[Rfam]
RNA sequence: AUAUAUUUCUCAACCUUUUUGCUAAGAUAAAUUGUAAUAUUUUUCCCAUCAGUUCAAUAUCUGGUAUGUGGACUAUAUGUUCAUUUUGAUAUUAUAUUUUUAUGGGUAUUUUUAUGGGGAGUGUCCACCACACUUGUUUAUUGUGCCCUCAUGUGUUGCCCACACGACAGUCAAGAACAAUCAGGGUUGGACAAAAUACUC
Numbered sequence: 001a002u003a004u005a006u007u008u009c010u011c012a013a014c015c016u017u018u019u020u021g022c023u024a025a026g027a028u029a030a031a032u033u034g035u036a037a038u039a040u041u042u043u044u045c046c047c048a049u050c051a052g053u054u055c056a057a058u059a060u061c062u063g064g065u066a067u068g069u070g071g072a073c074u075a076u077a078u079g080u081u082c083a084u085u086u087u088g089a090u091a092u093u094a095u096a097u098u099u100u101u102a103u104g105g106g107u108a109u110u111u112u113u114a115u116g117g118g119g120a121g122u123g124u125c126c127a128c129c130a131c132a133c134u135u136g137u138u139u140a141u142u143g144u145g146c147c148c149u150c151a152u153g154u155g156u157u158g159c160c161c162a163c164a165c166g167a168c169a170g171u172c173a174a175g176a177a178c179a180a181u182c183a184g185g186g187u188u189g190g191a192c193a194a195a196a197u198a199c200u201c
Stems, first nucleotide, its partner, number of pairs: 008027003012023001014021001048065005068084006113153007130139001132137001156194003160190002163185001166182002